[Rfam]
RNA sequence: CGAAUCCGCGCGGGAGAGUUCCGGCCACAGUGUGAGCCGGGCGCCGAAGGAGCAAGAUCCUCCCUUGAAUCUCUCAGGCCCCGUACC
Numbered sequence: 001c002g003a004a005u006c007c008g009c010g011c012g013g014g015a016g017a018g019u020u021c022c023g024g025c026c027a028c029a030g031u032g033u034g035a036g037c038c039g040g041g042c043g044c045c046g047a048a049g050g051a052g053c054a055a056g057a058u059c060c061u062c063c064c065u066u067g068a069a070u071c072u073c074u075c076a077g078g079c080c081c082c083g084u085a086c087c
Stems, first nucleotide, its partner, number of pairs: 012087002020041006043079003046075002050073003056066002
The family of this 87-nucleotide RNA sequence from Streptomyces sp. SID7982 is "Glycine riboswitch aptamer". Rfam links the family to the GO term glycine biosynthetic process.